[Rfam]
Nucleotides: 082
Stems, first nucleotide, its partner, number of pairs: 001064010015053002023048002025043001029042005067082004
Number, partner (000 for none) and nucleotide at each position: 001064u002063u003062u004061a005060c006059a007058g008057c009056u010055u011000g012000a013000a014000a015053g016052g017000a018000u019000u020000u021000a022000g023048g024047u025043a026000g027000a028000g029042g030041u031040u032039c033038c034000g035000c036000a037000a038033g039032g040031g041030a042029c043025u044000g045000a046000a047024g048023c049000c050000u051000u052016c053015u054000a055010g056009a057008g058007u059006u060005g061004u062003a063002a064001g065000u066000u067082c068081c069080g070079u071000c072000u073000a074000g075000a076000a077000a078000c079070a080069c081068g082067g
Rfam assigns this 82-nucleotide part of an RNA from uncultured crenarchaeote to the family "Archaeal large subunit ribosomal RNA". The source organism's lineage runs through Archaea, Thermoproteati and Thermoproteota. It is one of the family's seed sequences.